[Rfam]
This 101-nucleotide RNA sequence from [Clostridium] methylpentosum belongs to the Rfam family "azaaromatic riboswitch aptamer (yjdF RNA)".
A search with the family's covariance model found it, with a score of 93 bits.
The family's consensus secondary structure is taken from published work.
RNA sequence: UGCUGUGAAGAUAAAAACACAGUCCGGUUGGUAGUCCGGGCGCGGCGGCGACGCCGUCAGUAACCUGCCUCCUAAGGUUGUCCGUUCUUUGCAGGAAACAC
Numbered sequence: 001u002g003c004u005g006u007g008a009a010g011a012u013a014a015a016a017a018c019a020c021a022g023u024c025c026g027g028u029u030g031g032u033a034g035u036c037c038g039g040g041c042g043c044g045g046c047g048g049c050g051a052c053g054c055c056g057u058c059a060g061u062a063a064c065c066u067g068c069c070u071c072c073u074a075a076g077g078u079u080g081u082c083c084g085u086u087c088u089u090u091g092c093a094g095g096a097a098a099c100a101c
Stems, first nucleotide, its partner, number of pairs: 004093008022041006042057006067078004